[Rfam]
RNA sequence: CUGGUCUGAGGGACCGCGAAGACCGCCUUCGCCGCCGGUUCGGCCAGUGUAUCGGGCCGGGCCCUGACAAACAGCCCGCGGAGGGGCUCCUUCGAGCCGGACUUGGACCUCUGCGGUUGCCGCCUCCUGCUCCUGCUUCUGGAUUUGGGAGGGGAUUCCCCCGUCGCAGCCCCCGCCUCUGGACCUGCCUCUUGUCUCUCCGCGUGUGGAGGGAGCCAGUGCUUAGGCCGGAGCGAGCCUGGGGGCCGCCGGCCGCGAAGGCAUCGCGGGGACCCAUUCGCCAUG
Numbered sequence: 001c002u003g004g005u006c007u008g009a010g011g012g013a014c015c016g017c018g019a020a021g022a023c024c025g026c027c028u029u030c031g032c033c034g035c036c037g038g039u040u041c042g043g044c045c046a047g048u049g050u051a052u053c054g055g056g057c058c059g060g061g062c063c064c065u066g067a068c069a070a071a072c073a074g075c076c077c078g079c080g081g082a083g084g085g086g087c088u089c090c091u092u093c094g095a096g097c098c099g100g101a102c103u104u105g106g107a108c109c110u111c112u113g114c115g116g117u118u119g120c121c122g123c124c125u126c127c128u129g130c131u132c133c134u135g136c137u138u139c140u141g142g143a144u145u146u147g148g149g150a151g152g153g154g155a156u157u158c159c160c161c162c163g164u165c166g167c168a169g170c171c172c173c174c175g176c177c178u179c180u181g182g183a184c185c186u187g188c189c190u191c192u193u194g195u196c197u198c199u200c201c202g203c204g205u206g207u208g209g210a211g212g213g214a215g216c217c218a219g220u221g222c223u224u225a226g227g228c229c230g231g232a233g234c235g236a237g238c239c240u241g242g243g244g245g246c247c248g249c250c251g252g253c254c255g256c257g258a259a260g261g262c263a264u265c266g267c268g269g270g271g272a273c274c275c276a277u278u279c280g281c282c283a284u285g
Stems, first nucleotide, its partner, number of pairs: 002012001016032006034062003083159003130151005185219003189215004197210003229252001231250001233249003
HIF-1 alpha IRES: a 285-nucleotide RNA from Trichechus manatus. Pairs were carried over by alignment from the consensus structure, which was predicted with RNAfold. Rfam classes the family as an internal ribosome entry site. Rfam's curators write: This family represents the hypoxia-inducible factor 1-alpha internal ribosome entry site. HIF-1a is a subunit of the HIF-1 transcription factor, which induces transcription of several genes involved in the cellular response to hypoxia. The HIF-1a IRES allows translation to be maintained under hypoxic cell conditions that inhibit cap-dependent translation.